[Rfam]
RNA sequence: GUCUUGUCAGUGAUGUUUGAAAACACAAAUGUCUGAACAAAUGACUUCCUGUGAUUCUAUAUUCUGUGCUGAGACAAGAC
Numbered sequence: 001g002u003c004u005u006g007u008c009a010g011u012g013a014u015g016u017u018u019g020a021a022a023a024c025a026c027a028a029a030u031g032u033c034u035g036a037a038c039a040a041a042u043g044a045c046u047u048c049c050u051g052u053g054a055u056u057c058u059a060u061a062u063u064c065u066g067u068g069c070u071g072a073g074a075c076a077a078g079a080c
Base pairs, nucleotide, nucleotide: 002079003078004077005076006075007074008073
This 80-nucleotide sequence from Mola mola belongs to the Rfam family "Small nucleolar RNA SNORD72". It scores 53 bits against the family's covariance model. On this family, see Huttenhofer et al., EMBO J 2001: "RNomics: an experimental approach that identifies 201 candidates for novel, small, non-messenger RNAs in mouse". NCBI's taxonomy places the organism under Eukaryota, Gnathostomata, Euteleostomi, Neoteleostei, Mola. Pairs were carried over by alignment from the consensus structure. Rfam's curators write: snoRNA HBII-240 belongs to the CD family of snoRNAs. It is the human orthologue of the mouse MBII-240 and is predicted to guide 2'O-ribose methylation of the large 28S rRNA at residue U4590.